[Rfam]
RNA sequence: UGUAUCGAAAUACCUAAAGCUCGUAUAAUCUUGGAAAUAGGGUCCAAGAGUUUCUACCGAACUACCGUAAAUAGUUGGACUACGAGGGGUGAACAUCAUUCA
Numbered sequence: 001u002g003u004a005u006c007g008a009a010a011u012a013c014c015u016a017a018a019g020c021u022c023g024u025a026u027a028a029u030c031u032u033g034g035a036a037a038u039a040g041g042g043u044c045c046a047a048g049a050g051u052u053u054c055u056a057c058c059g060a061a062c063u064a065c066c067g068u069a070a071a072u073a074g075u076u077g078g079a080c081u082a083c084g085a086g087g088g089g090u091g092a093a094c095a096u097c098a099u100u101c102a
Stems, first nucleotide, its partner, number of pairs: 020086006029049007058078001060076005
Shown here is a 102-nucleotide RNA from Priestia megaterium, a member of the family "Purine riboswitch aptamer". Lineage of the source: Bacteria > Bacillati > Bacilli > Caryophanales > Priestia megaterium. The base pairs follow the family's consensus structure, which is taken from published work. A search with the family's covariance model found it, with a score of 81 bits.